[Rfam]
RNA sequence: UCUGUGUCUGUAAACAUCCCCGACUGGAAGCUGUAAGCCACAGCCAAGCUUUCAGUCAGAUGUUUGCUGCUACUGG
Numbered sequence: 001u002c003u004g005u006g007u008c009u010g011u012a013a014a015c016a017u018c019c020c021c022g023a024c025u026g027g028a029a030g031c032u033g034u035a036a037g038c039c040a041c042a043g044c045c046a047a048g049c050u051u052u053c054a055g056u057c058a059g060a061u062g063u064u065u066g067c068u069g070c071u072a073c074u075g076g
Base pairs, nucleotide, nucleotide: 002075004073005072006071008069010067011066012065013064014063015062016061017060018059023056024055025054026053027052028051029050030049031048032047